6S / SsrS RNA: a 181-nucleotide RNA sequence from Clostridium pasteurianum. Rfam's curators write: E. coli 6S RNA was the first non coding RNA to be sequenced, but its function was unknown until recently. It consists of 184 nucleotides that fold into an extended hairpin structure with a large single-stranded internal bulge. The 6S RNA specifically associates with RNA polymerase holoenzyme containing the sigma70 specificity factor. This interaction represses expression from a sigma70-dependent promoter during stationary phase. 6S RNA homologs have recently been identified in most bacterial genomes. Many Gram-positive species have two copies of 6S RNA. In Bacillus subtilis, both copies appear to interact with RNA polymerase holoenzyme containing the housekeeping sigma factor and be expressed during different stages of growth. In many proteobacteria, 6S RNA may be processed from a transcript encoding homologs of the E. coli YgfA protein which is a putative 5-formyltetrahydrofolate cycloligase activity.
RNA sequence: AAAUUCCUACUGUGUUCGAGAAGUGGAUUUAUGUUGACCCAGCACUUUUUUUUAGGGAACUUAUCCCUUCUUGUGGAAUGAUGUUCAUUUGUAAAAAUGAAAACAAGAAGCAAGAAGGCAGUGCCCACCUGCUGAGAGCGGGUUAUCUUUUAAAUUCAUCAUACGGUACAGUAGGAUUUUA
Numbered sequence: 001a002a003a004u005u006c007c008u009a010c011u012g013u014g015u016u017c018g019a020g021a022a023g024u025g026g027a028u029u030u031a032u033g034u035u036g037a038c039c040c041a042g043c044a045c046u047u048u049u050u051u052u053u054a055g056g057g058a059a060c061u062u063a064u065c066c067c068u069u070c071u072u073g074u075g076g077a078a079u080g081a082u083g084u085u086c087a088u089u090u091g092u093a094a095a096a097a098u099g100a101a102a103a104c105a106a107g108a109a110g111c112a113a114g115a116a117g118g119c120a121g122u123g124c125c126c127a128c129c130u131g132c133u134g135a136g137a138g139c140g141g142g143u144u145a146u147c148u149u150u151u152a153a154a155u156u157c158a159u160c161a162u163a164c165g166g167u168a169c170a171g172u173a174g175g176a177u178u179u180u181a
Base pairs, nucleotide, nucleotide: 002179003178005176006175007174008173009172010171011170012169013168014167015166017165018164033147035145036144037143038142039141040140055126056125057124059122060121061120064117068116069115070114071113072112073111074110079105080104084101085100086099087098088097